[Rfam]
RNA: Bacteroidales small SRP
Organism: Bacteroidetes bacterium SCGC AAA795-G10
RNA sequence: UGUUAUCGGGCAAGUUCUACACAACCAGCUCCUGCUAAAUCCCCCAGGGCGGGAACGCAGCAAGGGUAGGCGGUUGUAGCGGUGUGAUGUAGGCGGCUUGCCCAUUU
Numbered sequence: 001u002g003u004u005a006u007c008g009g010g011c012a013a014g015u016u017c018u019a020c021a022c023a024a025c026c027a028g029c030u031c032c033u034g035c036u037a038a039a040u041c042c043c044c045c046a047g048g049g050c051g052g053g054a055a056c057g058c059a060g061c062a063a064g065g066g067u068a069g070g071c072g073g074u075u076g077u078a079g080c081g082g083u084g085u086g087a088u089g090u091a092g093g094c095g096g097c098u099u100g101c102c103c104a105u106u107u
Base pairs, nucleotide, nucleotide: 008103009102010101011100012099013098014097015096017092018091019090020089021088022086023085024083025082